[Rfam]
RNA sequence: UUUUAUCCCCAGCUCUGAGAACUGAGCUCCGUGGGCUGGGAGUGACUCUGCUGCCAGACCCGUGGGGCUCAGUUCCUCAGCUUGGGGAUUUCUG
Numbered sequence: 001u002u003u004u005a006u007c008c009c010c011a012g013c014u015c016u017g018a019g020a021a022c023u024g025a026g027c028u029c030c031g032u033g034g035g036c037u038g039g040g041a042g043u044g045a046c047u048c049u050g051c052u053g054c055c056a057g058a059c060c061c062g063u064g065g066g067g068c069u070c071a072g073u074u075c076c077u078c079a080g081c082u083u084g085g086g087g088a089u090u091u092c093u094g
Base pairs, nucleotide, nucleotide: 008085009084011082012081013080019075020074021073022072023071024070025069033061034060035059

Shown here is a 94-nucleotide RNA from Serilophus lunatus, a member of the family "mir-146 microRNA precursor family". A search with the family's covariance model found it, with a score of 55 bits. Taxonomically the source falls in Serilophus (Eukaryota, Opisthokonta, Chordata, Sauria). Rfam 15.1 lists 1,617 matches to the family in 642 species.